[Rfam]
RNA sequence: CAACUCUGGAAAGCAGGCGCACCCGGUGCGCCUCGCCCACGGUGCAAGCCGCCCUCACCCGGUGGCGAAGCUCUCAGGCUCAUGGCAGAGGGGGA
Numbered sequence: 001c002a003a004c005u006c007u008g009g010a011a012a013g014c015a016g017g018c019g020c021a022c023c024c025g026g027u028g029c030g031c032c033u034c035g036c037c038c039a040c041g042g043u044g045c046a047a048g049c050c051g052c053c054c055u056c057a058c059c060c061g062g063u064g065g066c067g068a069a070g071c072u073c074u075c076a077g078g079c080u081c082a083u084g085g086c087a088g089a090g091g092g093g094g095a
Base pairs, nucleotide, nucleotide: 001093004090005089006088007087008086015033016032017031018030019029020028021027035079036078037077039074042073044071048066049065050064051063052062053061
RNA: Glycine riboswitch aptamer